RNA sequence: GGUUAGCUUAUAUGAUUCACACUAUUCGCCUACUAAGCCUACUACUCAUCGCCUUUAAUGUGCGCGGUAUGCUGGUAGGGGAAAGACAGAGUUAACCUCCAUCAGAUGUGAAAAAAACCGCGCCGGGCGCGGUUUUUUUA
Dot-bracket structure: .(..((.(((...............((.(((((((.......((((...(((.........))).))))...))))))).))..........))).)).)............(((((((((((...)))))))))))...